[Rfam]
RNA sequence: UCGCCCCAGUAAACAUUCAACGCUGUCGGUGAGUUUGGGAUUAAAUUGGUUCAAAACCAUCGACCGUUGAUUGUACCCUGUGGCCAG
Numbered sequence: 001u002c003g004c005c006c007c008a009g010u011a012a013a014c015a016u017u018c019a020a021c022g023c024u025g026u027c028g029g030u031g032a033g034u035u036u037g038g039g040a041u042u043a044a045a046u047u048g049g050u051u052c053a054a055a056a057c058c059a060u061c062g063a064c065c066g067u068u069g070a071u072u073g074u075a076c077c078c079u080g081u082g083g084c085c086a087g
Stems, first nucleotide, its partner, number of pairs: 001087001003085001004083002007080002014073002017070006025064007033057004
Dot-bracket structure: (.(((.((.....((.((((((..(((((((.((((.................))))))))))))))))).)).....)).)).).)
This 87-nucleotide RNA sequence from Muraenolepis orangiensis belongs to the Rfam family "mir-181 microRNA precursor family". The family has 157 seed sequences and 3,490 matches in Rfam 15.1. The source organism's lineage runs through Eukaryota, Opisthokonta, Metazoa, Acanthomorphata and Muraenolepis. It scores 75 bits against the family's covariance model. The family's consensus secondary structure was predicted with PFOLD. Rfam links the family to the GO terms RISC complex and miRNA-mediated post-transcriptional gene silencing.